[Rfam]
RNA: c-di-AMP riboswitch aptamer (ydaO/yuaA leader)
RNA sequence: UCGCCCGCAGCGCCUAGUCUGCCCCUCCGGGCAGAACGGGGGAACCAGUUCUCGGGGCGAAUCCGCCCGGCCGGCACCACAACCCGGCGACGGCGGAGCGGCUAUCUCCGGCCGCAGCCCGGCAGCUAACCUCGGCGGCGUAGGAAGACCUUGUU
Numbered sequence: 001u002c003g004c005c006c007g008c009a010g011c012g013c014c015u016a017g018u019c020u021g022c023c024c025c026u027c028c029g030g031g032c033a034g035a036a037c038g039g040g041g042g043a044a045c046c047a048g049u050u051c052u053c054g055g056g057g058c059g060a061a062u063c064c065g066c067c068c069g070g071c072c073g074g075c076a077c078c079a080c081a082a083c084c085c086g087g088c089g090a091c092g093g094c095g096g097a098g099c100g101g102c103u104a105u106c107u108c109c110g111g112c113c114g115c116a117g118c119c120c121g122g123c124a125g126c127u128a129a130c131c132u133c134g135g136c137g138g139c140g141u142a143g144g145a146a147g148a149c150c151u152u153g154u155u
Stems, first nucleotide, its partner, number of pairs: 011140004018035007037134005046054001055120003063096004099114004